[Rfam]
RNA sequence: GUCAACUACCCCCGUCUAAAGACGGAGGCAUGAAGCCUUGGAGUUGACCAGCCUCAGCCCGUACCGCAAGGUCAAUGGGCUACGUUAUCCCGGUCAUGGCACCCCGGGGUGCUUGGGCCAGCUUCGGGCAACUGCCGUCCGGCAUUAAACAGGCAUACGGGGUUGAAGCCAGUGUGCCGGACAGGACAAGCCGGGAUAACAUUGGCGAGGCCCACAUUAC
Numbered sequence: 001g002u003c004a005a006c007u008a009c010c011c012c013c014g015u016c017u018a019a020a021g022a023c024g025g026a027g028g029c030a031u032g033a034a035g036c037c038u039u040g041g042a043g044u045u046g047a048c049c050a051g052c053c054u055c056a057g058c059c060c061g062u063a064c065c066g067c068a069a070g071g072u073c074a075a076u077g078g079g080c081u082a083c084g085u086u087a088u089c090c091c092g093g094u095c096a097u098g099g100c101a102c103c104c105c106g107g108g109g110u111g112c113u114u115g116g117g118c119c120a121g122c123u124u125c126g127g128g129c130a131a132c133u134g135c136c137g138u139c140c141g142g143c144a145u146u147a148a149a150c151a152g153g154c155a156u157a158c159g160g161g162g163u164u165g166a167a168g169c170c171a172g173u174g175u176g177c178c179g180g181a182c183a184g185g186a187c188a189a190g191c192c193g194g195g196a197u198a199a200c201a202u203u204g205g206c207g208a209g210g211c212c213c214a215c216a217u218u219a220c
Base pairs, nucleotide, nucleotide: 001048002047003046004045005044006043007042010028011027012025013024015022016021029040030039032037051206052205053204056081057080058079059078060077061076062075084200085199086198087197088196089195090194091193092192093191094190099135100134103128104127105126106125107124108123109122110121113214115212116211118210119209137182138181139180140179141178142177143176144175145174149173150172152170153169154168156166
RNA: HNH endonuclease-associated RNA and ORF (HEARO) RNA